[Rfam]
RNA sequence: AAACUAAGGGCGCAAGGCGGAUGCCUUGGCACCAGGAGGCGAAGAAGGACGUGACAAGCAACGAAAACCUCGAGUAGGAGCAAAUAUCCAGUGACUCGGGGGAAUCCGAAUGGGGAAACCUACUAGAUACACUCUAGUAUCCAUACGUAAAUACAUAGCGUAUGGAAGCGAAUGUUCUGAACUGAAACAUCUAAGUAGGAACAAGAAAAGAAAGAAAACUCGAUUCUCCAAGUAGCGGCGAGCGAACAGAGAACAGCCCAUUAAAGUAAGACUAAACUGAUAGACAAAUCUUAUGGAAAGAAGAACCAAAGAAAGUAACAGUCUUGUAGUCGAAAUCAGAAUAGAGACACUUUAAGAAGAGUACCACGGAGCACGUGAAAUUCUGUGGGAAGAUAGGGGGACCACCCCUAAGGCUAAAUACUACCUGGUGACCGAUAGCGAAUAGUACCGUGAGGGAAAGGUGAAAAGAACCCCGGGAGGGGAGUGAAAUAGAACCUGAAACCUUGCGCCUACAAG
Numbered sequence: 001a002a003a004c005u006a007a008g009g010g011c012g013c014a015a016g017g018c019g020g021a022u023g024c025c026u027u028g029g030c031a032c033c034a035g036g037a038g039g040c041g042a043a044g045a046a047g048g049a050c051g052u053g054a055c056a057a058g059c060a061a062c063g064a065a066a067a068c069c070u071c072g073a074g075u076a077g078g079a080g081c082a083a084a085u086a087u088c089c090a091g092u093g094a095c096u097c098g099g100g101g102g103a104a105u106c107c108g109a110a111u112g113g114g115g116a117a118a119c120c121u122a123c124u125a126g127a128u129a130c131a132c133u134c135u136a137g138u139a140u141c142c143a144u145a146c147g148u149a150a151a152u153a154c155a156u157a158g159c160g161u162a163u164g165g166a167a168g169c170g171a172a173u174g175u176u177c178u179g180a181a182c183u184g185a186a187a188c189a190u191c192u193a194a195g196u197a198g199g200a201a202c203a204a205g206a207a208a209a210g211a212a213a214g215a216a217a218a219c220u221c222g223a224u225u226c227u228c229c230a231a232g233u234a235g236c237g238g239c240g241a242g243c244g245a246a247c248a249g250a251g252a253a254c255a256g257c258c259c260a261u262u263a264a265a266g267u268a269a270g271a272c273u274a275a276a277c278u279g280a281u282a283g284a285c286a287a288a289u290c291u292u293a294u295g296g297a298a299a300g301a302a303g304a305a306c307c308a309a310a311g312a313a314a315g316u317a318a319c320a321g322u323c324u325u326g327u328a329g330u331c332g333a334a335a336u337c338a339g340a341a342u343a344g345a346g347a348c349a350c351u352u353u354a355a356g357a358a359g360a361g362u363a364c365c366a367c368g369g370a371g372c373a374c375g376u377g378a379a380a381u382u383c384u385g386u387g388g389g390a391a392g393a394u395a396g397g398g399g400g401a402c403c404a405c406c407c408c409u410a411a412g413g414c415u416a417a418a419u420a421c422u423a424c425c426u427g428g429u430g431a432c433c434g435a436u437a438g439c440g441a442a443u444a445g446u447a448c449c450g451u452g453a454g455g456g457a458a459a460g461g462u463g464a465a466a467a468g469a470a471c472c473c474c475g476g477g478a479g480g481g482g483a484g485u486g487a488a489a490u491a492g493a494a495c496c497u498g499a500a501a502c503c504u505u506g507c508g509c510c511u512a513c514a515a516g
Base pairs, nucleotide, nucleotide: 008511009510010509011508012507013506014505015504016503017502023496024461025460028433029432030430031429032428033427034426035425036424037422038421039169040168047107048106049105050063051062052061068101069100070099071098072097073096074095077089078088079087112121113120114119122138123137124136125135126134127133140166141165142164143163144162145161146160147159148158173204174202175201176200177199178198184191185190214221215220224418225252226251227250228249235243236242255415256414257413258412261355262354263353264352265351273343274342277339278338279337280336281335283331284330285329289304290303291302292301307311313325314324315323364388365387366386367385368384369383370382371381395409396408397407398406399405448455449454471482472481473480474479
RNA: Bacterial large subunit ribosomal RNA, nucleotides 8 to 523